[Rfam]
RNA sequence: GGGUGUUCGCCAUUAAUGGCGGCAGGUUUUGUAGCAUCGGUCGGGCCGCCGUUG
Numbered sequence: 001g002g003g004u005g006u007u008c009g010c011c012a013u014u015a016a017u018g019g020c021g022g023c024a025g026g027u028u029u030u031g032u033a034g035c036a037u038c039g040g041u042c043g044g045g046c047c048g049c050c051g052u053u054g
Base pairs, nucleotide, nucleotide: 005023006022008021009020010019011018012017035054036053038051039050040049041048